The record is a 127-nucleotide RNA from Aurantimonas sp. 22II-16-19i, which matches "Alphaproteobacterial sRNA ar35" in Rfam.
[Rfam]
RNA sequence: ACCGGCCGUUCGUCGGCCGACAAUCUGCAGGCCGUCUGAGCCAUUUGCUCCGAACCGCUGACCACGGAUGUACUGGCAGCGCGGAUGAGCAGAAGAGGAAGGUCGGGUUCGCCCGGCCUUUUUUGUU
Numbered sequence: 001a002c003c004g005g006c007c008g009u010u011c012g013u014c015g016g017c018c019g020a021c022a023a024u025c026u027g028c029a030g031g032c033c034g035u036c037u038g039a040g041c042c043a044u045u046u047g048c049u050c051c052g053a054a055c056c057g058c059u060g061a062c063c064a065c066g067g068a069u070g071u072a073c074u075g076g077c078a079g080c081g082c083g084g085a086u087g088a089g090c091a092g093a094a095g096a097g098g099a100a101g102g103u104c105g106g107g108u109u110c111g112c113c114c115g116g117c118c119u120u121u122u123u124u125g126u127u
Stems, first nucleotide, its partner, number of pairs: 004042003007038001014034005046091005052086001058081001059078002062076003093126001095124012
The family has 13 seed sequences and 266 matches in Rfam 15.1. For this family Rfam cites "A survey of sRNA families in alpha-proteobacteria" (del Val et al., RNA Biol, 2012).